[Rfam]
RNA sequence: UUCUUAUCCAGAGAGGUGGAGGGACUGGCCCUGUGAAGCCUCAGCAACAGAUCAACUAGGAUACUGUGCUAAUUCCAGCGGGUGAUUUUUCCUCGAUAGAUAGGAG
Numbered sequence: 001u002u003c004u005u006a007u008c009c010a011g012a013g014a015g016g017u018g019g020a021g022g023g024a025c026u027g028g029c030c031c032u033g034u035g036a037a038g039c040c041u042c043a044g045c046a047a048c049a050g051a052u053c054a055a056c057u058a059g060g061a062u063a064c065u066g067u068g069c070u071a072a073u074u075c076c077a078g079c080g081g082g083u084g085a086u087u088u089u090u091c092c093u094c095g096a097u098a099g100a101u102a103g104g105a106g
Stems, first nucleotide, its partner, number of pairs: 001106008013042005021031003025078004043070004048066002050062001052060002074098001079095004084090001